[Rfam]
RNA sequence: CUGUUCAAAUAGAACAUAUACUCUAUAGCCACUUUGAGUUACUAUAAUUACUAUGGUAAUUUACAAGAUUAUAGUAACUUCUUACUAUGUGAUUUACUAUAAUGUCAUGAUAAAUAUUCCCAGGUGUGUUAUAGUAAUCCAAAUAGUAUAAAUAUAUAUGUACACAUAUUAUAGUAGAUUAGUACAUAAAACUAUAGUAAAUAGAGGUGGCUAUAGAAUAACUAUUCUAUGGCCGG
Numbered sequence: 001c002u003g004u005u006c007a008a009a010u011a012g013a014a015c016a017u018a019u020a021c022u023c024u025a026u027a028g029c030c031a032c033u034u035u036g037a038g039u040u041a042c043u044a045u046a047a048u049u050a051c052u053a054u055g056g057u058a059a060u061u062u063a064c065a066a067g068a069u070u071a072u073a074g075u076a077a078c079u080u081c082u083u084a085c086u087a088u089g090u091g092a093u094u095u096a097c098u099a100u101a102a103u104g105u106c107a108u109g110a111u112a113a114a115u116a117u118u119c120c121c122a123g124g125u126g127u128g129u130u131a132u133a134g135u136a137a138u139c140c141a142a143a144u145a146g147u148a149u150a151a152a153u154a155u156a157u158a159u160g161u162a163c164a165c166a167u168a169u170u171a172u173a174g175u176a177g178a179u180u181a182g183u184a185c186a187u188a189a190a191a192c193u194a195u196a197g198u199a200a201a202u203a204g205a206g207g208u209g210g211c212u213a214u215a216g217a218a219u220a221a222c223u224a225u226u227c228u229a230u231g232g233c234c235g236g
Base pairs, nucleotide, nucleotide: 001236002235003234005232006231007230010229011228012227013226014225016223019220020219022217023216024215025214026213027212028211029210030209031208032207033206034205035204039200040199041198042197043196044195045194046193048191049190052186054184055183057181058180059179060178061177062176063175064174068172069171071169072168073167074165075164082151083150084149090145091144093142094141095136096135097134098133099132100131101130102129103128104127105126109119110118
A member of the RNA family "MIR6217 microRNA precursor family" from Digitaria exilis, 236 nucleotides long. Lineage of the source: Eukaryota > Viridiplantae > Streptophyta > Streptophytina > Digitaria. The base pairs follow the family's consensus structure, which was predicted with RNAalifold. Gene Ontology terms of the family: RISC complex and miRNA-mediated post-transcriptional gene silencing.